[Rfam]
Rfam assigns this 105-nucleotide RNA sequence to the family "KDPG-aldolase RNA". The family's RNA type in Rfam is small RNA. It is one of the family's seed sequences.

RNA sequence: GGUGUGGUCGGUUUCUGGCAACGUUUUUUCUUUCUGAAAAGUUGCCAGACCCUGUGGCAGGGGCGCGCCAUCAAUCACAACGAUGCCUGCGGGCAUGAACGGAGA
Number, nucleotide and partner (000 for none) at each position: 001g069002g068003u067004g066005u065006g064007g000008u000009c000010g000011g000012u000013u000014u049015c048016u047017g046018g045019c044020a043021a042022c041023g000024u000025u000026u000027u000028u000029u000030c000031u000032u000033u000034c000035u000036g000037a000038a000039a000040a000041g022042u021043u020044g019045c018046c017047a016048g015049a014050c000051c000052c000053u000054g000055u000056g000057g000058c000059a000060g000061g000062g000063g000064c006065g005066c004067g003068c002069c001070a000071u000072c000073a000074a000075u000076c000077a000078c000079a000080a000081c000082g000083a096084u095085g094086c093087c092088u000089g000090c000091g000092g087093g086094c085095a084096u083097g000098a000099a000100c000101g000102g000103a000104g000105a000